[Rfam]
RNA sequence: CUCUUAUCGAGAGCGGUGGAGGGACUGGCCCGAUGAAACCCGGCAACCGGCAUCAGGCACGGUGCUAAAUCCAGCAGGGUUAUCCCUGAAAGAUGAGAG
Numbered sequence: 001c002u003c004u005u006a007u008c009g010a011g012a013g014c015g016g017u018g019g020a021g022g023g024a025c026u027g028g029c030c031c032g033a034u035g036a037a038a039c040c041c042g043g044c045a046a047c048c049g050g051c052a053u054c055a056g057g058c059a060c061g062g063u064g065c066u067a068a069a070u071c072c073a074g075c076a077g078g079g080u081u082a083u084c085c086c087u088g089a090a091a092g093a094u095g096a097g098a099g
Base pairs, nucleotide, nucleotide: 001099002098003097004096005095006094007093008092013041015040016039017038021031022030023029025074026073027072028071042066043065044064045063047062048061049058051056070091075088076087077086078085079084
Record summary:
This 99-nucleotide RNA from Caldanaerobius fijiensis belongs to the Rfam family "SAM riboswitch aptamer (S box leader)". A reference for the family is Grundy and Henkin (1998), "The S box regulon: a new global transcription termination control system for methionine and cysteine biosynthesis genes in gram-positive bacteria", Mol Microbiol. A search with the family's covariance model found it, with a score of 89 bits.